Notes: Shown here is a 302-nucleotide RNA sequence from Medicago truncatula, a member of the family "Plant signal recognition particle RNA".
[Rfam]
RNA sequence: GCUGAGUUGAAUAACACCAACUUGUAACCCAUGUGGGAGCAUCAAGGUGAUGGAACAUGGCUGUGUCUUAACAGGUUGGGCUGUAGGGUACAUUAUGCUGGCCUGCCCACUCCAAGUUGAGAGUUGGGCCAUGGGAUUUGGGCGAAGGCUCAGAUCUCCUGGUCACUAGAACGGAGGGAUCCGCAUGAGGCUGGUUUCACAGAGCAGUGAUCACUUCCUUCUCUUGACAGUGGAGGGAUUACAGGCUGCUGUAUUCUCAGCCCAUAGGCCUGGUGAGCCUAGUCCAUUGAACCAUCAUUUUU
Numbered sequence: 001g002c003u004g005a006g007u008u009g010a011a012u013a014a015c016a017c018c019a020a021c022u023u024g025u026a027a028c029c030c031a032u033g034u035g036g037g038a039g040c041a042u043c044a045a046g047g048u049g050a051u052g053g054a055a056c057a058u059g060g061c062u063g064u065g066u067c068u069u070a071a072c073a074g075g076u077u078g079g080g081c082u083g084u085a086g087g088g089u090a091c092a093u094u095a096u097g098c099u100g101g102c103c104u105g106c107c108c109a110c111u112c113c114a115a116g117u118u119g120a121g122a123g124u125u126g127g128g129c130c131a132u133g134g135g136a137u138u139u140g141g142g143c144g145a146a147g148g149c150u151c152a153g154a155u156c157u158c159c160u161g162g163u164c165a166c167u168a169g170a171a172c173g174g175a176g177g178g179a180u181c182c183g184c185a186u187g188a189g190g191c192u193g194g195u196u197u198c199a200c201a202g203a204g205c206a207g208u209g210a211u212c213a214c215u216u217c218c219u220u221c222u223c224u225u226g227a228c229a230g231u232g233g234a235g236g237g238a239u240u241a242c243a244g245g246c247u248g249c250u251g252u253a254u255u256c257u258c259a260g261c262c263c264a265u266a267g268g269c270c271u272g273g274u275g276a277g278c279c280u281a282g283u284c285c286a287u288u289g290a291a292c293c294a295u296c297a298u299u300u301u302u
Base pairs, nucleotide, nucleotide: 001040002039003038004023005022006021007020008019009018028037029036030035044301045300046299047298048297049296050295051294052293053292056289057288058286059285060284061282062281063280065278066277068276069275070274072272073271074270075269076268077267078263079262080261081260082259083258086255088254089253090252099248100247101246102245103244104243105242107237108236110235111234112233113232114231116228117227118226119225120224121223122222123221127164128163129162130161131160133158134157135156136155137154138153139152140151141150142149143148173218174217175216176215177214184209185208186207191202192201193200

Rfam links the family to the GO terms signal recognition particle, endoplasmic reticulum targeting and SRP-dependent cotranslational protein targeting to membrane, signal sequence recognition.